A member of the RNA family "Purine riboswitch aptamer" from Paenalicyclobacillus macrosporangiidus, 102 nucleotides long. The organism belongs to Paenalicyclobacillus, within Bacteria. It scores 77 bits against the family's covariance model. Clan: Purine riboswitches. The base pairs follow the family's consensus structure, which is taken from published work.
RNA sequence: UGAGGUCGAAAAUCAGAGACUCGUAUAACGCUGGGAAUAUGGCUCAGCGGUCUCUACCGGGCGACCGAGAAUCGCCCGACUACGAGGUCGGAAUCAGGCGGC
Dot-bracket structure: .................(.((((((...(((((((.......)))))))........(((((((.......)))))))..)))))).)..............